This 205-nucleotide RNA sequence from Paenibacillus nasutitermitis belongs to the Rfam family "c-di-AMP riboswitch aptamer (ydaO/yuaA leader)". Taxonomically the source falls in Paenibacillus (Bacteria, Bacillati, Caryophanales, Paenibacillaceae). The match comes from Rfam's covariance-model search (90 bits).
RNA sequence: UCCAUACUAUCGCUUAAUCUCCGAAUGACGGAGAGCGGGGGAACCAUUCGUUGAAACAUUUCGUAUCAAACACGAGACUUCAAUGUUGAAUUCUUCUUGGGGUGAAUUUCCACGGGGCAUAUAAGCAAGAUAUGCCAGCCGGGAAUAGGGCGACUCUCUCGCCCGAAUCCGACAGCUAACCUCGCAAGCGUAAAUAAGUUACAUA
Numbered sequence: 001u002c003c004a005u006a007c008u009a010u011c012g013c014u015u016a017a018u019c020u021c022c023g024a025a026u027g028a029c030g031g032a033g034a035g036c037g038g039g040g041g042a043a044c045c046a047u048u049c050g051u052u053g054a055a056a057c058a059u060u061u062c063g064u065a066u067c068a069a070a071c072a073c074g075a076g077a078c079u080u081c082a083a084u085g086u087u088g089a090a091u092u093c094u095u096c097u098u099g100g101g102g103u104g105a106a107u108u109u110c111c112a113c114g115g116g117g118c119a120u121a122u123a124a125g126c127a128a129g130a131u132a133u134g135c136c137a138g139c140c141g142g143g144a145a146u147a148g149g150g151c152g153a154c155u156c157u158c159u160c161g162c163c164c165g166a167a168u169c170c171g172a173c174a175g176c177u178a179a180c181c182u183c184g185c186a187a188g189c190g191u192a193a194a195u196a197a198g199u200u201a202c203a204u205a
Stems, first nucleotide, its partner, number of pairs: 011190004018034005035185006045099002100170003108145004148164004